[Rfam]
RNA sequence: AGUCGGUUUCGAAGCAAACGAAGUGAAGCAUGUUAUUUAAUACGAUAAUCCGCGUAAAAUCUUACCAGUUCUUGCAUACAAACUUUAUAAAUAAUGAAAAUAAUUUCUUUAAGGAAUAAAAUAAUUAUUUAAAAAGGAGUGUUUUUUAAAAUUUAAAAAUACUUAGAUACAGGUGUUGCAUGGCUGUCGUCAGUCCGUGCUGUGAGAAGUUUGGUUAAAUCCGCUAACGGACAAAAUCCCUGUUGUUAAUUUAUACUUAACAAUUAAUGAUACUGAUAGAGCAUCAUUUGGGGCGAAGACAAGUCGUUAUGGCCCUCAUGAACUGGGCUAUAGACGUGCCACAAAGACUUUUACAAAGUGAAGCGAUACUGUUCCCUAAAUAUUUUUCUAAAGAAUUAUAUUAAGUUUAAAAAUAACAAUUAAAUUAUAGGGAAUUUAAGGAGGAGCUAAUCAUUAAAAAAAGUUAAACUAUUAAAUAUAGUCGGAUUGUCAUCUGAAACUCGGGGACAUGAAGAAGGAAUUUCGAGUAAUCGUUGAUCACUACGCAACGGUGAAGCUAGCAUUCGGAAUGAACUAACCGUCUGUCGCUGGGAAGGAGCU
Numbered sequence: 001a002g003u004c005g006g007u008u009u010c011g012a013a014g015c016a017a018a019c020g021a022a023g024u025g026a027a028g029c030a031u032g033u034u035a036u037u038u039a040a041u042a043c044g045a046u047a048a049u050c051c052g053c054g055u056a057a058a059a060u061c062u063u064a065c066c067a068g069u070u071c072u073u074g075c076a077u078a079c080a081a082a083c084u085u086u087a088u089a090a091a092u093a094a095u096g097a098a099a100a101u102a103a104u105u106u107c108u109u110u111a112a113g114g115a116a117u118a119a120a121a122u123a124a125u126u127a128u129u130u131a132a133a134a135a136g137g138a139g140u141g142u143u144u145u146u147u148a149a150a151a152u153u154u155a156a157a158a159a160u161a162c163u164u165a166g167a168u169a170c171a172g173g174u175g176u177u178g179c180a181u182g183g184c185u186g187u188c189g190u191c192a193g194u195c196c197g198u199g200c201u202g203u204g205a206g207a208a209g210u211u212u213g214g215u216u217a218a219a220u221c222c223g224c225u226a227a228c229g230g231a232c233a234a235a236a237u238c239c240c241u242g243u244u245g246u247u248a249a250u251u252u253a254u255a256c257u258u259a260a261c262a263a264u265u266a267a268u269g270a271u272a273c274u275g276a277u278a279g280a281g282c283a284u285c286a287u288u289u290g291g292g293g294c295g296a297a298g299a300c301a302a303g304u305c306g307u308u309a310u311g312g313c314c315c316u317c318a319u320g321a322a323c324u325g326g327g328c329u330a331u332a333g334a335c336g337u338g339c340c341a342c343a344a345a346g347a348c349u350u351u352u353a354c355a356a357a358g359u360g361a362a363g364c365g366a367u368a369c370u371g372u373u374c375c376c377u378a379a380a381u382a383u384u385u386u387u388c389u390a391a392a393g394a395a396u397u398a399u400a401u402u403a404a405g406u407u408u409a410a411a412a413a414u415a416a417c418a419a420u421u422a423a424a425u426u427a428u429a430g431g432g433a434a435u436u437u438a439a440g441g442a443g444g445a446g447c448u449a450a451u452c453a454u455u456a457a458a459a460a461a462a463g464u465u466a467a468a469c470u471a472u473u474a475a476a477u478a479u480a481g482u483c484g485g486a487u488u489g490u491c492a493u494c495u496g497a498a499a500c501u502c503g504g505g506g507a508c509a510u511g512a513a514g515a516a517g518g519a520a521u522u523u524c525g526a527g528u529a530a531u532c533g534u535u536g537a538u539c540a541c542u543a544c545g546c547a548a549c550g551g552u553g554a555a556g557c558u559a560g561c562a563u564u565c566g567g568a569a570u571g572a573a574c575u576a577a578c579c580g581u582c583u584g585u586c587g588c589u590g591g592g593a594a595g596g597a598g599c600u
Stems, first nucleotide, its partner, number of pairs: 001575002003572003007569007017558001020524005025342001028339007035331002041056004065326007077169002079166001081164002086148002089145003151160003172315002175313004181309002183304003186300003193232006201206001212223003238292003243263006267287005273281002346465007358454003363447002369441002483514001488509004493504002530552007